[Rfam]
RNA sequence: AUACUUACCUGAUCGGGGAGAUACCGUGAUCACGAAGGUGGUGUUCUCAGGGCGAGGUUUAUUCGUUGUACUCGGGAUGUGUUGGUCUCUGCGAUUUCCCCAAAUGUGGGAAGUUUGACUGCAUAAUUUGUGGUAGUGGGGGACUGCGUUCGCGCUUUCCCCUG
Numbered sequence: 001a002u003a004c005u006u007a008c009c010u011g012a013u014c015g016g017g018g019a020g021a022u023a024c025c026g027u028g029a030u031c032a033c034g035a036a037g038g039u040g041g042u043g044u045u046c047u048c049a050g051g052g053c054g055a056g057g058u059u060u061a062u063u064c065g066u067u068g069u070a071c072u073c074g075g076g077a078u079g080u081g082u083u084g085g086u087c088u089c090u091g092c093g094a095u096u097u098c099c100c101c102a103a104a105u106g107u108g109g110g111a112a113g114u115u116u117g118a119c120u121g122c123a124u125a126a127u128u129u130g131u132g133g134u135a136g137u138g139g140g141g142g143a144c145u146g147c148g149u150u151c152g153c154g155c156u157u158u159c160c161c162c163u164g
Stems, first nucleotide, its partner, number of pairs: 013121001015119001016048005023042005049090004054086001056083003060079005092117003095113003099109002138163006146155003
Record summary:
The record is a 164-nucleotide RNA sequence from Heterocephalus glaber, which matches "U1 spliceosomal RNA" in Rfam. It is annotated as a spliceosomal small nuclear RNA. The literature on the family includes a 1997 paper in Nucleic Acids Res by Zwieb, "The uRNA database". Pairs were carried over by alignment from the consensus structure, which is taken from published work.